[Rfam]
RNA: S-element
Organism: Mesorhizobium australicum
RNA sequence: UGUCAAGAGUCUCGGCGUCGAUUGGGCGAGCAGAUUUCUUUUGCCUGAUUGAAGGUGAAGGAAAAUG
Numbered sequence: 001u002g003u004c005a006a007g008a009g010u011c012u013c014g015g016c017g018u019c020g021a022u023u024g025g026g027c028g029a030g031c032a033g034a035u036u037u038c039u040u041u042u043g044c045c046u047g048a049u050u051g052a053a054g055g056u057g058a059a060g061g062a063a064a065a066u067g
Base pairs, nucleotide, nucleotide: 010062011061012059016057017056018055019054022052023051024050025049028046030044031043032042033041034040